[Rfam]
RNA sequence: ACGUCGAGUAGAAGCGUUCACCCCCGCACCUGGCCCGAGGCCGGUGCUGCGUGCGGCCGGAAAUUGCUCGGUUC
Numbered sequence: 001a002c003g004u005c006g007a008g009u010a011g012a013a014g015c016g017u018u019c020a021c022c023c024c025c026g027c028a029c030c031u032g033g034c035c036c037g038a039g040g041c042c043g044g045u046g047c048u049g050c051g052u053g054c055g056g057c058c059g060g061a062a063a064u065u066g067c068u069c070g071g072u073u074c
Base pairs, nucleotide, nucleotide: 005070006069007068008067009066010065015059018061019060021056022055025053026052027051
The record is a 74-nucleotide RNA sequence from Sphaerotilus mobilis, which matches "Xanthine riboswitch aptamer (NMT1 RNA)" in Rfam. NCBI's taxonomy places the organism under Bacteria, Pseudomonadati, Burkholderiales, Sphaerotilaceae, Sphaerotilus. The literature on the family includes a 2020 paper in RNA by Yu and Breaker, "A bacterial riboswitch class senses xanthine and uric acid to regulate genes associated with purine oxidation".